RNA sequence: UUAAGAUAAAGGCAAACCUCUCGAAAGAUUGGGACGCAAAGUUACAGGUCUAAUGUUGGAUACAACGAUGACAGCUGAACUGCCUAA
Numbered sequence: 001u002u003a004a005g006a007u008a009a010a011g012g013c014a015a016a017c018c019u020c021u022c023g024a025a026a027g028a029u030u031g032g033g034a035c036g037c038a039a040a041g042u043u044a045c046a047g048g049u050c051u052a053a054u055g056u057u058g059g060a061u062a063c064a065a066c067g068a069u070g071a072c073a074g075c076u077g078a079a080c081u082g083c084c085u086a087a
Base pairs, nucleotide, nucleotide: 012037013036017032018031021028022027040081041080042079043078045077046076047075048072049071050070055066056065057064058063
Rfam assigns this 87-nucleotide sequence from Niallia nealsonii to the family "c-di-GMP-I riboswitch aptamer". Taxonomically the source falls in Niallia (Bacteria, Bacillati, Bacillota, Caryophanales). About the family: GEMM was predicted in a large-scale screen for bacterial structured RNA regulatory elements.